[Rfam]
RNA sequence: CCUCCCUUUAAACCAGUCCAGAGAGACUGACAAGGGGUAUACUCCUCUCCUGCCUGGCGAACAUUAACGGCGAGCAGGGCGGUGACCGUACCUCUUUGUACAGCAAAGAGGUUUUUUGUUU
Numbered sequence: 001c002c003u004c005c006c007u008u009u010a011a012a013c014c015a016g017u018c019c020a021g022a023g024a025g026a027c028u029g030a031c032a033a034g035g036g037g038u039a040u041a042c043u044c045c046u047c048u049c050c051u052g053c054c055u056g057g058c059g060a061a062c063a064u065u066a067a068c069g070g071c072g073a074g075c076a077g078g079g080c081g082g083u084g085a086c087c088g089u090a091c092c093u094c095u096u097u098g099u100a101c102a103g104c105a106a107a108g109a110g111g112u113u114u115u116u117u118g119u120u121u
Stems, first nucleotide, its partner, number of pairs: 003037006014029005045082002048079006055072001088114001090112010